[Rfam]
RNA sequence: UUUAGAAUCUUUGGGGAGUAGCCGCACAAAUAUCCCAUGUGACAAGCGUCAACAUACUUGUUUUUUGAUUAAAACAUGGCGUUUGUAUCUUUACCACAAAUUUUUGUGGUUGGACUGGCAAGAC
Numbered sequence: 001u002u003u004a005g006a007a008u009c010u011u012u013g014g015g016g017a018g019u020a021g022c023c024g025c026a027c028a029a030a031u032a033u034c035c036c037a038u039g040u041g042a043c044a045a046g047c048g049u050c051a052a053c054a055u056a057c058u059u060g061u062u063u064u065u066u067g068a069u070u071a072a073a074a075c076a077u078g079g080c081g082u083u084u085g086u087a088u089c090u091u092u093a094c095c096a097c098a099a100a101u102u103u104u105u106g107u108g109g110u111u112g113g114a115c116u117g118g119c120a121a122g123a124c
Base pairs, nucleotide, nucleotide: 026040027039028038042086043085044084045083046082047081048080049079050078051077059076060075061074062073063072